[Rfam]
RNA sequence: UGUCCCGUAUUAGUGCCGUCUUUCAUCCUUCAUUGAACGUAUGGCUAUGCUAACGGGGUAGAAAAACACUGUCACGGUCUGAAGGUGUGGCUGCUGAAUGUGCGCCUCACUAAAUAAAGUGACAGAACAAAAAUAU
Numbered sequence: 001u002g003u004c005c006c007g008u009a010u011u012a013g014u015g016c017c018g019u020c021u022u023u024c025a026u027c028c029u030u031c032a033u034u035g036a037a038c039g040u041a042u043g044g045c046u047a048u049g050c051u052a053a054c055g056g057g058g059u060a061g062a063a064a065a066a067c068a069c070u071g072u073c074a075c076g077g078u079c080u081g082a083a084g085g086u087g088u089g090g091c092u093g094c095u096g097a098a099u100g101u102g103c104g105c106c107u108c109a110c111u112a113a114a115u116a117a118a119g120u121g122a123c124a125g126a127a128c129a130a131a132a133a134u135a136u
Stems, first nucleotide, its partner, number of pairs: 004057004016044004071123004089111002092109001
Rfam assigns this 136-nucleotide sequence from Gouania willdenowi to the family "Small nucleolar RNA SNORA29". On this family, see Huttenhofer et al., EMBO J 2001: "RNomics: an experimental approach that identifies 201 candidates for novel, small, non-messenger RNAs in mouse". ACA29 is a member of the H/ACA class of snoRNA that guide the sites of modification of uridines to pseudouridines. The family's consensus secondary structure was predicted with PFOLD.